[Rfam]
RNA sequence: CUAUGCUUCUGUUAGGUGAGGCUCCUAUAUGGAUAUAUGCUGCUGCCCAAAAACGUCGAGAGACACCAAUGGGUCAACAGAGAUGGUCGGAUUAAGGCCAUAUUUAACGUAGCUGAUGAAUAAUCUAUGCCAUAUAGUGCUAAAACUCGACGAUGGAGAAAAACUA
Numbered sequence: 001c002u003a004u005g006c007u008u009c010u011g012u013u014a015g016g017u018g019a020g021g022c023u024c025c026u027a028u029a030u031g032g033a034u035a036u037a038u039g040c041u042g043c044u045g046c047c048c049a050a051a052a053a054c055g056u057c058g059a060g061a062g063a064c065a066c067c068a069a070u071g072g073g074u075c076a077a078c079a080g081a082g083a084u085g086g087u088c089g090g091a092u093u094a095a096g097g098c099c100a101u102a103u104u105u106a107a108c109g110u111a112g113c114u115g116a117u118g119a120a121u122a123a124u125c126u127a128u129g130c131c132a133u134a135u136a137g138u139g140c141u142a143a144a145a146c147u148c149g150a151c152g153a154u155g156g157a158g159a160a161a162a163a164c165u166a
Stems, first nucleotide, its partner, number of pairs: 007160004011151002013095001015147003020141003025137008039113005045074005055064003080104002083101001086098003115125003
M-box riboswitch aptamer (ykoK leader): a 166-nucleotide RNA sequence from Carnobacterium iners. Taxonomically the source falls in Carnobacterium (Bacteria, Bacillota, Bacilli, Carnobacteriaceae). The family has 159 seed sequences and 1,095 matches in Rfam 15.1. The literature on the family includes a 2010 paper in RNA Biol by Ramesh and Winkler, "Magnesium-sensing riboswitches in bacteria". A search with the family's covariance model found it, with a score of 142 bits.